[Rfam]
RNA sequence: UCUGUGGAGUGCCACAUCAAACUGGAGUAGCUACGGCUAAACAGGGUACGAUGAAGCAGAAA
Dot-bracket structure: (((((...(((((........(((.....((....))....))))))))......)))))..
Numbered sequence: 001u002c003u004g005u006g007g008a009g010u011g012c013c014a015c016a017u018c019a020a021a022c023u024g025g026a027g028u029a030g031c032u033a034c035g036g037c038u039a040a041a042c043a044g045g046g047u048a049c050g051a052u053g054a055a056g057c058a059g060a061a062a
Stems, first nucleotide, its partner, number of pairs: 001060005009049005022044003030037002
Annotation: The record is a 62-nucleotide RNA, which matches "RAGATH-18 RNA" in Rfam. The base pairs follow the family's consensus structure, which is taken from published work. It is one of the family's seed sequences. Rfam's curators write: Actinobacteria, Firmicutes, Fusobacteria, Thermotogae (1 example).